RNA sequence: CUCGCAGCUCCGGGGUGUGCGAAAGCGCUGAGAUGCGAAAGGCAGUUGCAAGACUGCUGAUUAGCGAACCCGACGAACUUGAUCCGGUUCAUGCCGGCGGAAGAAGAGCGGGACCCUGAAAG
Numbered sequence: 001c002u003c004g005c006a007g008c009u010c011c012g013g014g015g016u017g018u019g020c021g022a023a024a025g026c027g028c029u030g031a032g033a034u035g036c037g038a039a040a041g042g043c044a045g046u047u048g049c050a051a052g053a054c055u056g057c058u059g060a061u062u063a064g065c066g067a068a069c070c071c072g073a074c075g076a077a078c079u080u081g082a083u084c085c086g087g088u089u090c091a092u093g094c095c096g097g098c099g100g101a102a103g104a105a106g107a108g109c110g111g112g113a114c115c116c117u118g119a120a121a122g
Base pairs, nucleotide, nucleotide: 007109008108009107010106011072012071013070014069016066017028018027019026020025035065036064038062039061078103079102080101084097085096086095087094
RNA: TPP riboswitch aptamer (THI element)